[Rfam]
RNA: MIR1120/MIR1122 microRNA precursor family
Organism: Triticum turgidum
RNA sequence: AUACUCCCUCCGUCCCAUAAUAUAAGAAUGUUUUUUAUACUAGUGUAGUGUCAAAAACGUUCUUAUAUUUUGGGACAGAGGGAGUAU
Numbered sequence: 001a002u003a004c005u006c007c008c009u010c011c012g013u014c015c016c017a018u019a020a021u022a023u024a025a026g027a028a029u030g031u032u033u034u035u036u037a038u039a040c041u042a043g044u045g046u047a048g049u050g051u052c053a054a055a056a057a058c059g060u061u062c063u064u065a066u067a068u069u070u071u072g073g074g075a076c077a078g079a080g081g082g083a084g085u086a087u
Base pairs, nucleotide, nucleotide: 003085004084005083007081008080009079010078013075014074015073016072017071019069020068021067022066023065024064025063026062027061028060029059030058031057032056033055034054035053037051038050039049040048041047